[Rfam]
RNA sequence: AGAGUGAAACUCAUUAGAGAGUCACGGGGCCAUGAGCUGAGUGUGUCGUGUCACUCCAGCCCCAUGUCCCUUGGGAAAAUAAGAGAGUAGGGUCAGAAGCAGCCUUAAUAAGGCUCUCCUUGAGUUGCAAGGAGGUGAAUUCCCAGAAAACAGAGCUGCUUGAGGUCAGACGGGGCAGGAGAUGCUGCAGACCCUACCCCUGGGGAGGAAUUCAGGGGAAGUCUCCUAAGUGAGAGCUUGGAACAGAUUCAGUGAAAUGAGCUCAACAGCUAAGGUUAGGUACCCCACAUGGGGUCCUCAUAACUGCUGUCCCCCAUCCUCU
Numbered sequence: 001a002g003a004g005u006g007a008a009a010c011u012c013a014u015u016a017g018a019g020a021g022u023c024a025c026g027g028g029g030c031c032a033u034g035a036g037c038u039g040a041g042u043g044u045g046u047c048g049u050g051u052c053a054c055u056c057c058a059g060c061c062c063c064a065u066g067u068c069c070c071u072u073g074g075g076a077a078a079a080u081a082a083g084a085g086a087g088u089a090g091g092g093u094c095a096g097a098a099g100c101a102g103c104c105u106u107a108a109u110a111a112g113g114c115u116c117u118c119c120u121u122g123a124g125u126u127g128c129a130a131g132g133a134g135g136u137g138a139a140u141u142c143c144c145a146g147a148a149a150a151c152a153g154a155g156c157u158g159c160u161u162g163a164g165g166u167c168a169g170a171c172g173g174g175g176c177a178g179g180a181g182a183u184g185c186u187g188c189a190g191a192c193c194c195u196a197c198c199c200c201u202g203g204g205g206a207g208g209a210a211u212u213c214a215g216g217g218g219a220a221g222u223c224u225c226c227u228a229a230g231u232g233a234g235a236g237c238u239u240g241g242a243a244c245a246g247a248u249u250c251a252g253u254g255a256a257a258u259g260a261g262c263u264c265a266a267c268a269g270c271u272a273a274g275g276u277u278a279g280g281u282a283c284c285c286c287a288c289a290u291g292g293g294g295u296c297c298u299c300a301u302a303a304c305u306g307c308u309g310u311c312c313c314c315c316a317u318c319c320u321c322u
Stems, first nucleotide, its partner, number of pairs: 001322004006311002010274002013271001015269001026071004039056005044050001101115005116134006137250005155237003275301002278298003
A member of the RNA family "Nuclear RNase P" from Nomascus leucogenys, 322 nucleotides long.
Rfam classes the family as a ribozyme.
The organism belongs to Nomascus, within Eukaryota.